[Rfam]
RNA: cspA thermoregulator
RNA sequence: AUCGGUUUGAAACACAGACCUUAUGUAAGCAGUUUUAGUAAAGCAGUCCUCAGUUCAAGCGCUAUCUAUUGAUAUCCUUCCUCGUGAGCUCCUCCUAAGUGCCCCAUAAGUAAAAAUCUGCAAAGCAGACCAUAUUCGUCACCAAGAGUGGCUCAAAAAACAAGCAAGGAAAUAUCAAUGUCUAAUAAAAUGACUGGUUUAGUAAAAUGGUUCAACGCUGAGAAAGGUUUUGGCUUUAUCACUCCUCAGGACGGCAGCAAAGAUGUAUUCGUACAUUUCUCUGCUAUCCAGAGCAACGAUUUCAAAACCUUAGAUGAAGGCCAGAAAGUAGAGUUCUCUAUCGAGAACGGCGCUAAAGGCCCAUCAGCGACCAACGUUGUCGCGCUGUAAGCGUAGAUGACCUCGCUAACGCUUACGAUAGCGAUGACGGCAACAGCCUGAGCAGUUAAGCGUUAGUGAUA
Numbered sequence: 001a002u003c004g005g006u007u008u009g010a011a012a013c014a015c016a017g018a019c020c021u022u023a024u025g026u027a028a029g030c031a032g033u034u035u036u037a038g039u040a041a042a043g044c045a046g047u048c049c050u051c052a053g054u055u056c057a058a059g060c061g062c063u064a065u066c067u068a069u070u071g072a073u074a075u076c077c078u079u080c081c082u083c084g085u086g087a088g089c090u091c092c093u094c095c096u097a098a099g100u101g102c103c104c105c106a107u108a109a110g111u112a113a114a115a116a117u118c119u120g121c122a123a124a125g126c127a128g129a130c131c132a133u134a135u136u137c138g139u140c141a142c143c144a145a146g147a148g149u150g151g152c153u154c155a156a157a158a159a160a161c162a163a164g165c166a167a168g169g170a171a172a173u174a175u176c177a178a179u180g181u182c183u184a185a186u187a188a189a190a191u192g193a194c195u196g197g198u199u200u201a202g203u204a205a206a207a208u209g210g211u212u213c214a215a216c217g218c219u220g221a222g223a224a225a226g227g228u229u230u231u232g233g234c235u236u237u238a239u240c241a242c243u244c245c246u247c248a249g250g251a252c253g254g255c256a257g258c259a260a261a262g263a264u265g266u267a268u269u270c271g272u273a274c275a276u277u278u279c280u281c282u283g284c285u286a287u288c289c290a291g292a293g294c295a296a297c298g299a300u301u302u303c304a305a306a307a308c309c310u311u312a313g314a315u316g317a318a319g320g321c322c323a324g325a326a327a328g329u330a331g332a333g334u335u336c337u338c339u340a341u342c343g344a345g346a347a348c349g350g351c352g353c354u355a356a357a358g359g360c361c362c363a364u365c366a367g368c369g370a371c372c373a374a375c376g377u378u379g380u381c382g383c384g385c386u387g388u389a390a391g392c393g394u395a396g397a398u399g400a401c402c403u404c405g406c407u408a409a410c411g412c413u414u415a416c417g418a419u420a421g422c423g424a425u426g427a428c429g430g431c432a433a434c435a436g437c438c439u440g441a442g443c444a445g446u447u448a449a450g451c452g453u454u455a456g457u458g459a460u461a
Base pairs, nucleotide, nucleotide: 004020005019006018007017008016009015028246029245031243032242033241042237043236045235046234047233048232049227050226054225055224063220064219066217069215070214071213072212074211075210076209080180082178085177086176093170094169095168096167100166101165102164105125107123138152139151140150141149142148182197183196184195186193250342251341253339254338262270263269275329276328277327278326280325281324282323283322284320285319287314288313290311291310349362350361352360353359354358365387366386367385368382369381370380371379392399393398404458405457406456407455408454409453410452411451412450413449414448415447